[Rfam]
RNA sequence: CGGUAACUCGAUUAUCGGCGAAUAACGAAAAUCAUAAAAAAAUUCCUCUUUGACGGGCCGAUACUAUUAUCGGCCUUUUUUUU
Dot-bracket structure: .......((((...))))........((...)).....................(((((((((....))))))))).......
Background
sroB RNA: an 83-nucleotide sequence from Paramixta manurensis. Rfam classes the family as a small RNA. Pairs were carried over by alignment from the consensus structure, which was predicted with LocARNA. Taxonomically the source falls in Paramixta (Bacteria, Pseudomonadati, Gammaproteobacteria, Erwiniaceae).